A member of the RNA family "Small nucleolar RNA U2-19" from Hipposideros armiger, 82 nucleotides long. Rfam links the family to the GO terms nucleolus and RNA processing. The base pairs follow the family's consensus structure, which is taken from published work. The family has 29 seed sequences and 1,147 matches in Rfam 15.1.

RNA sequence: AAGCAUUGCCUUGAAAAUUGCCAAAUUUGACCAUCAGAGUACCUUCCAGUUUAGCUGAUGCAUGAUCUCUGUAGCUCUGAGA
Numbered sequence: 001a002a003g004c005a006u007u008g009c010c011u012u013g014a015a016a017a018u019u020g021c022c023a024a025a026u027u028u029g030a031c032c033a034u035c036a037g038a039g040u041a042c043c044u045u046c047c048a049g050u051u052u053a054g055c056u057g058a059u060g061c062a063u064g065a066u067c068u069c070u071g072u073a074g075c076u077c078u079g080a081g082a
Stems, first nucleotide, its partner, number of pairs: 032060004039052001041050002